The family of this 96-nucleotide sequence from Vagococcus humatus is "Purine riboswitch aptamer". Pairs were carried over by alignment from the consensus structure, which is taken from published work. Rfam describes the family as follows. Riboswitches are metabolite binding domains within certain messenger RNAs that serve as precision sensors for their corresponding targets. Taxonomically the source falls in Vagococcus (Bacteria, Bacilli, Lactobacillales, Enterococcaceae).
RNA sequence: CAAUUCCAUAAAUUGUCAGCUUAUAUAUGCUCAAGAUUGGUUGAGCGUUUCUACCUGAUACCGUAAUAUCAGACUAUAAGCAAAUCAAGGCUAUUG
Numbered sequence: 001c002a003a004u005u006c007c008a009u010a011a012a013u014u015g016u017c018a019g020c021u022u023a024u025a026u027a028u029g030c031u032c033a034a035g036a037u038u039g040g041u042u043g044a045g046c047g048u049u050u051c052u053a054c055c056u057g058a059u060a061c062c063g064u065a066a067u068a069u070c071a072g073a074c075u076a077u078a079a080g081c082a083a084a085u086c087a088a089g090g091c092u093a094u095u096g
Base pairs, nucleotide, nucleotide: 019081020080021079022078023077024076025075029046030045031044032043033042034041055072056071057070058069059068060067